The record is a 112-nucleotide RNA sequence from Staphylococcus sp. HGB0015, which matches "SAM riboswitch aptamer (S box leader)" in Rfam. Gene Ontology term of the family: regulation of gene expression.
RNA sequence: AACUUAUCCAGAGAAGCGGAGGGACUGGCCCUAUGAAGCUUCGGCAACAGGCUACGGCACUGUGCCAAUUCCAGUAACUGAUACGGUCUUCGUAUCGGUUAGAAGAUAAGAU
Numbered sequence: 001a002a003c004u005u006a007u008c009c010a011g012a013g014a015a016g017c018g019g020a021g022g023g024a025c026u027g028g029c030c031c032u033a034u035g036a037a038g039c040u041u042c043g044g045c046a047a048c049a050g051g052c053u054a055c056g057g058c059a060c061u062g063u064g065c066c067a068a069u070u071c072c073a074g075u076a077a078c079u080g081a082u083a084c085g086g087u088c089u090u091c092g093u094a095u096c097g098g099u100u101a102g103a104a105g106a107u108a109a110g111a112u
Base pairs, nucleotide, nucleotide: 001112003110004109005108006107007106008105013042014041015040016039017038021031022030023029025074026073027072028071043066044065045064046063048062049061050058052056070104075101076100077099078098079097080096081095082094083093084092085091086090